RNA: Alphaproteobacterial ar15
RNA sequence: AGUCGACGGGUCGCUCCUCCCACUCUUCACGUCGACUGUUCCCCUCUGGAGGUCAUAACCUUCAGCAUUGGCCGGACUUUUUAAGUCCGGCCUUU
Numbered sequence: 001a002g003u004c005g006a007c008g009g010g011u012c013g014c015u016c017c018u019c020c021c022a023c024u025c026u027u028c029a030c031g032u033c034g035a036c037u038g039u040u041c042c043c044c045u046c047u048g049g050a051g052g053u054c055a056u057a058a059c060c061u062u063c064a065g066c067a068u069u070g071g072c073c074g075g076a077c078u079u080u081u082u083a084a085g086u087c088c089g090g091c092c093u094u095u
Stems, first nucleotide, its partner, number of pairs: 001037005007031002047064007072090006078083001